The record is a 177-nucleotide sequence from Mycolicibacterium confluentis, which matches "Actinobacteria sRNA Ms_IGR-5" in Rfam.
RNA sequence: ACACAGGGAAGGAGGUGGUCCGACAAAUUGAGUGACGUAUGGACAUGUGAGGUGGCUGCCCGCUAGCAGCACCAGGCGAGGAAAUUCACCUGCGCGCGCUGGCGAAUUCCAAGCAGCCACCCGGCCCCCGAGCCCUCGGUCUGUCCAAACCGGAACACGGCUCGGGGGCCGCUCCAU
Number, nucleotide and partner (000 for none) at each position: 001a000002c000003a000004c000005a000006g000007g000008g000009a000010a000011g000012g000013a000014g060015g059016u058017g057018g056019u055020c000021c000022g000023a000024c000025a000026a000027a000028u000029u000030g000031a000032g000033u000034g000035a000036c000037g000038u000039a000040u000041g000042g000043a000044c000045a000046u000047g000048u000049g000050a000051g000052g000053u000054g000055g019056c018057u017058g016059c015060c014061c104062g103063c102064u101065a100066g099067c098068a000069g097070c096071a000072c094073c000074a091075g090076g089077c000078g000079a000080g000081g000082a000083a000084a000085u000086u000087c000088a000089c076090c075091u074092g000093c000094g072095c000096g070097c069098g067099c066100u065101g064102g063103c062104g061105a000106a000107u000108u000109c000110c000111a000112a000113g000114c000115a000116g000117c000118c000119a000120c000121c000122c171123g170124g169125c168126c167127c166128c165129c164130g163131a162132g161133c160134c159135c000136u153137c152138g151139g150140u148141c000142u000143g000144u000145c000146c000147a000148a140149a000150c139151c138152g137153g136154a000155a000156c000157a000158c000159g134160g133161c132162u131163c130164g129165g128166g127167g126168g125169c124170c123171g122172c000173u000174c000175c000176a000177u000

The literature on the family includes a 2013 paper in RNA by Li et al., "Identification of small RNAs in Mycobacterium smegmatis using heterologous Hfq". Taxonomically the source falls in Mycobacterium (subgen. Mycolicibacterium) (Bacteria, Actinomycetota, Actinomycetes, Mycobacterium). The pairing is the family consensus, mapped onto this sequence. A search with the family's covariance model found it, with a score of 178 bits.